[Rfam]
RNA sequence: ACUGGGCGUCGUGGCGGGCGCCUGUGAGCCAGCUUCUAGGCAGUAGAUCGGCGUGGAUGGAGUGAGGGGAGGAGUCCCGCGGUGGCCGCAGAGUGCGGCGACCGGGCGUCCGCGUCAAGCGUCGCGUCGCCAGGGGUGUGCAGCCGGAGGGUUGCGUGUCCCGGGCGGUCAAGGAGGGGUGCACGGCACAGGCCCGAAAGGGAGCAGGCAAAAACCCCCGCGCGACGCAGUGGCCGGAUCGCGCCCGUGAGCACCUGCACUGUCGUGGCCUCUCCGACACCUUCAGACCGGCGAUCGU
Dot-bracket structure: ((((((((((......)))))))....(((........)))))).(((((.((....(((((...(((((((....((((((((...(((..((((......(((((((((..((((.(((((((((((((.(((((((((((((....))))))))))))).)))).(...)..(((((.....((.....(((....))).....))....))))).)))))))))..)))).))...)))))))...)))).)))..))))))))))))))).....)))))...)).)))))..
Numbered sequence: 001a002c003u004g005g006g007c008g009u010c011g012u013g014g015c016g017g018g019c020g021c022c023u024g025u026g027a028g029c030c031a032g033c034u035u036c037u038a039g040g041c042a043g044u045a046g047a048u049c050g051g052c053g054u055g056g057a058u059g060g061a062g063u064g065a066g067g068g069g070a071g072g073a074g075u076c077c078c079g080c081g082g083u084g085g086c087c088g089c090a091g092a093g094u095g096c097g098g099c100g101a102c103c104g105g106g107c108g109u110c111c112g113c114g115u116c117a118a119g120c121g122u123c124g125c126g127u128c129g130c131c132a133g134g135g136g137u138g139u140g141c142a143g144c145c146g147g148a149g150g151g152u153u154g155c156g157u158g159u160c161c162c163g164g165g166c167g168g169u170c171a172a173g174g175a176g177g178g179g180u181g182c183a184c185g186g187c188a189c190a191g192g193c194c195c196g197a198a199a200g201g202g203a204g205c206a207g208g209c210a211a212a213a214a215c216c217c218c219c220g221c222g223c224g225a226c227g228c229a230g231u232g233g234c235c236g237g238a239u240c241g242c243g244c245c246c247g248u249g250a251g252c253a254c255c256u257g258c259a260c261u262g263u264c265g266u267g268g269c270c271u272c273u274c275c276g277a278c279a280c281c282u283u284c285a286g287a288c289c290g291g292c293g294a295u296c297g298u
Stems, first nucleotide, its partner, number of pairs: 001044003004023007028041003046296005052290002058285005066275007077268008088258003093254004103247007110237002114234004119228009128167004133162013169173001176218005186209002193202003